[Rfam]
Nucleotides: 405
Base pairs, nucleotide, nucleotide: 001403002401004366006364007363009361011026012025014021031399032398037394038393040265041264042263044261045087093260094259095258097256098119099118100117101116102115103114120142121140122139123138124137125136126135127134128133143255144254146198147197148196152192153191154190155189159186160185161184162183163182164181165180166179167178168177204253205252206249207248208247221236222235223234224233225232226231269285270284271283289337290336291335292334293333294332295331296330297329298328299327300326301325338352339351340350341349342348343347368384369383370382371381372380373379
Number, partner (000 for none) and nucleotide at each position: 001403g002401a003000c004366g005000g006364g007363g008000g009361c010000u011026a012025u013000u014021g015000g016000u017000a018000a019000u020000a021014u022000u023000u024000g025012a026011u027000a028000g029000a030000a031399a032398a033000a034000c035000a036000a037394a038393u039000c040265c041264u042263a043000u044261c045087a046000g047000a048000g049000a050000a051000a052000c053000g054000c055000a056000a057000a058000u059000a060000a061000u062000c063000u064000a065000u066000c067000c068000g069000u070000a071000u072000c073000c074000c075000g076000g077000g078000a079000a080000a081000u082000g083000u084000a085000u086000g087045u088000a089000g090000u091000g092000u093260u094259u095258g096000u097256g098119c099118u100117u101116a102115a103114g104000a105000a106000a107000a108000a109000a110000a111000u112000a113000a114103c115102u116101u117100a118099a119098g120142g121140c122139a123138u124137u125136u126135a127134a128133a129000u130000u131000u132000a133128u134127u135126u136125a137124a138123a139122u140121g141000a142120c143255g144254g145000c146198u147197u148196u149000g150000a151000a152192a153191u154190u155189c156000u157000a158000a159186u160185a161184a162183c163182u164181u165180a166179u167178u168177u169000a170000u171000a172000a173000a174000g175000u176000a177168a178167a179166a180165u181164a182163a183162g184161u185160u186159g187000a188000u189155g190154a191153a192152u193000g194000u195000a196148a197147a198146a199000a200000u201000a202000a203000a204253g205252u206249g207248c208247c209000a210000c211000a212000g213000a214000g215000a216000c217000g218000a219000a220000u221236u222235g223234a224233u225232u226231a227000g228000a229000a230000a231226u232225g233224a234223u235222c236221a237000a238000g239000u240000g241000a242000a243000a244000c245000g246000c247208g248207g249206u250000a251000a252205a253204c254144c255143c256097c257000u258095c259094a260093a261044g262000c263042u264041a265040g266000c267000a268000a269285c270284c271283c272000a273000a274000a275000a276000a277000a278000a279000g280000g281000u282000a283271g284270g285269g286000g287000c288000a289337u290336a291335u292334a293333a294332a295331a296330a297329u298328u299327a300326a301325u302000a303000u304000u305000c306000c307000c308000u309000u310000u311000a312000u313000g314000c315000a316000a317000u318000a319000u320000a321000a322000a323000a324000a325301a326300u327299u328298a329297a330296u331295u332294u333293u334292u335291a336290u337289a338352c339351u340350a341349u342348u343347u344000u345000a346000a347343a348342a349341a350340u351339a352338g353000a354000g355000a356000u357000a358000a359000a360000u361009g362000a363007u364006c365000a366004c367000a368384c369383u370382u371381a372380u373379u374000g375000a376000u377000g378000a379373a380372a381371u382370a383369a384368g385000a386000a387000c388000a389000g390000a391000a392000c393038a394037u395000g396000g397000c398032u399031u400000a401002u402000g403001c404000a405000c

Rfam assigns this 405-nucleotide RNA from Candidatus Phytoplasma australasiaticum to the family "Bacterial RNase P class B". Taxonomically the source falls in Candidatus Phytoplasma australasiaticum (Bacteria, Bacillati, Mycoplasmatota, Acholeplasmatales). The family is grouped with related families in Rfam's "RNaseP clan". Ribonuclease P (RNase P) is a ubiquitous endoribonuclease, found in archaea, bacteria and eukarya as well as chloroplasts and mitochondria.